[Rfam]
RNA sequence: AACCGACAUCAGCGAUUCAUUCUGCGAACCGGCACCGACCGCCAGAUAAGCAUUCAUCCCCAGCUCUUUCAUCUGCUGUUCGCCGAUGACGCGGGUGGUGAUGUUCUGGCUAUAGGCAUCCGCCAGUUGUCGUGCCUGAGACGCCAGGUACGCCGGAUUACAGAUGUUUGGCGGCAUGUUGCCGAGAUCUUUUGC
Dot-bracket structure: ....((......((.(((.(...).))).))...(.....)........(........)..(((..........)))((.((.((((...(((((((.((.(......).))....)))))))..)))).)).))(((.((..(..........)..)).)))...((((((........)))))).))......
RNA: Yersinia sRNA 276
Organism: Tatumella ptyseos